[Rfam]
Description:
The family of this 89-nucleotide sequence from Rubripirellula tenax is "tRNA". It scores 55 bits against the family's covariance model.
RNA sequence: GGACGGUUGGCCGAGUCUGGUUUAUGGCACCGGUCUUGAAAACCGGCGUGGGGGAAACUCUACCGGGGGUUCGAAUCCCUCACCGUCCG
Numbered sequence: 001g002g003a004c005g006g007u008u009g010g011c012c013g014a015g016u017c018u019g020g021u022u023u024a025u026g027g028c029a030c031c032g033g034u035c036u037u038g039a040a041a042a043c044c045g046g047c048g049u050g051g052g053g054g055a056a057a058c059u060c061u062a063c064c065g066g067g068g069g070u071u072c073g074a075a076u077c078c079c080u081c082a083c084c085g086u087c088c089g
Base pairs, nucleotide, nucleotide: 001088002087003086004085005084006083007082010028011027012026013025030046031045032044033043034042065081066080067079068078069077
Dot-bracket structure: (((((((..((((...........)))).(((((.......)))))..................(((((.......)))))))))))).
The organism belongs to Rubripirellula, within Bacteria.
The family's consensus secondary structure is taken from published work.